[Rfam]
RNA: U1 spliceosomal RNA
Organism: Solanum lycopersicum
RNA sequence: AUACUUACCUGGACGGGGUCAAUGGGUAAUCAAGAAGUUCCAUGGCCUAGGUUGGUGACCUCCAUUGCACUAAGGAGGGGUGCUUGCCUAAGGUCGACCCAAGUGGUUGAGCCUACGUCAUAAUUUGUUGUUGCAGAGGGGGCCUGUGUUCGCGCAGCCCCUAC
Numbered sequence: 001a002u003a004c005u006u007a008c009c010u011g012g013a014c015g016g017g018g019u020c021a022a023u024g025g026g027u028a029a030u031c032a033a034g035a036a037g038u039u040c041c042a043u044g045g046c047c048u049a050g051g052u053u054g055g056u057g058a059c060c061u062c063c064a065u066u067g068c069a070c071u072a073a074g075g076a077g078g079g080g081u082g083c084u085u086g087c088c089u090a091a092g093g094u095c096g097a098c099c100c101a102a103g104u105g106g107u108u109g110a111g112c113c114u115a116c117g118u119c120a121u122a123a124u125u126u127g128u129u130g131u132u133g134c135a136g137a138g139g140g141g142g143c144c145u146g147u148g149u150u151c152g153c154g155c156a157g158c159c160c161c162u163a164c
Stems, first nucleotide, its partner, number of pairs: 012119004016048006023042004049089003053086001055083003059079003062075002091114003094110003098106002138162004145156004